Shown here is a 163-nucleotide sequence from Cohnella abietis, a member of the family "Group II catalytic intron D1-D4-3". From the family's description: Group II introns are found in rRNA, tRNA and mRNA of organelles in fungi, plants and protists, and also in mRNA in bacteria. Gene Ontology term of the family: Group II intron splicing.
[Rfam]
RNA sequence: UAGUCCGUGAGGAUAGGUGCGGAGGAUGCGAAGGCAAAGCCCGGAACAGGCGGCAUACCAUGUUGGCUGACGAAGUCGGAUAACCCUGCAAGAGACGGGAAGGUCCAAUACCACCAAAGGCUUCGGAAGUUAGGAGGACUGGAUUCGGGGGAAAGUCGGUUGA
Numbered sequence: 001u002a003g004u005c006c007g008u009g010a011g012g013a014u015a016g017g018u019g020c021g022g023a024g025g026a027u028g029c030g031a032a033g034g035c036a037a038a039g040c041c042c043g044g045a046a047c048a049g050g051c052g053g054c055a056u057a058c059c060a061u062g063u064u065g066g067c068u069g070a071c072g073a074a075g076u077c078g079g080a081u082a083a084c085c086c087u088g089c090a091a092g093a094g095a096c097g098g099g100a101a102g103g104u105c106c107a108a109u110a111c112c113a114c115c116a117a118a119g120g121c122u123u124c125g126g127a128a129g130u131u132a133g134g135a136g137g138a139c140u141g142g143a144u145u146c147g148g149g150g151g152a153a154a155g156u157c158g159g160u161u162g163a
Stems, first nucleotide, its partner, number of pairs: 001016001003014004029162003034156002040149005047141003058137002061134001066130003071125006078106004084099003